Rfam assigns this 61-nucleotide RNA from Salmo salar to the family "mir-8/mir-141/mir-200 microRNA precursor family". Rfam's curators put it in the seed alignment. The family is grouped with related families in Rfam's "mir-8 microRNA precursor clan".
RNA sequence: CAUCUUACCUGACAGUGCUGGAUUGUACAACUGUGUUCUAACACUGUCUGGUAACGAUGUU
Numbered sequence: 001c002a003u004c005u006u007a008c009c010u011g012a013c014a015g016u017g018c019u020g021g022a023u024u025g026u027a028c029a030a031c032u033g034u035g036u037u038c039u040a041a042c043a044c045u046g047u048c049u050g051g052u053a054a055c056g057a058u059g060u061u
Base pairs, nucleotide, nucleotide: 001059002058003057004056005054006053007052008051009050011048012047013046014045015044016043017042019040020039021038022037